RNA sequence: GUUGCAAGUUUAAGGCCACAGCAGAAGCGCUCAUGACAUGACCCUGUCAAAUUCCAAUGAAUCUGCAAAUUCUACU
Numbered sequence: 001g002u003u004g005c006a007a008g009u010u011u012a013a014g015g016c017c018a019c020a021g022c023a024g025a026a027g028c029g030c031u032c033a034u035g036a037c038a039u040g041a042c043c044c045u046g047u048c049a050a051a052u053u054c055c056a057a058u059g060a061a062u063c064u065g066c067a068a069a070u071u072c073u074a075c076u
Stems, first nucleotide, its partner, number of pairs: 014043002017040001020076002023073004027039001029037001048065002051062004